mir-31 microRNA precursor family: an 81-nucleotide RNA sequence from Menidia menidia. Rfam 15.1 lists 1,181 matches to the family in 783 species. Lineage of the source: Eukaryota > Euteleosteomorpha > Eurypterygia > Acanthomorphata > Menidia. Pairs were carried over by alignment from the consensus structure, which was predicted with RNAalifold.

RNA sequence: GCCCCGAAGGAAGGCAAGAUGUUGGCAUAGCUGUUGAACCGAAAGCCCCGCUAUGCCAUCAACUUGCCGUCUUUCUCUCCC
Numbered sequence: 001g002c003c004c005c006g007a008a009g010g011a012a013g014g015c016a017a018g019a020u021g022u023u024g025g026c027a028u029a030g031c032u033g034u035u036g037a038a039c040c041g042a043a044a045g046c047c048c049c050g051c052u053a054u055g056c057c058a059u060c061a062a063c064u065u066g067c068c069g070u071c072u073u074u075c076u077c078u079c080c081c
Stems, first nucleotide, its partner, number of pairs: 006075006013068006020061002023058009